[Rfam]
RNA: terC RNA
Organism: Sphingobium fontiphilum
RNA sequence: UGAGCGGGCCGGGCCCCUCUGGCGCUCCAUCUCUGGCUUCCAUCCCCCUCUCGGAAGCCGCGGAGCGCGAUGUCGGACCGCAUCG
Dot-bracket structure: .....((.((((.........(((((((.................................)))))))....)))).))......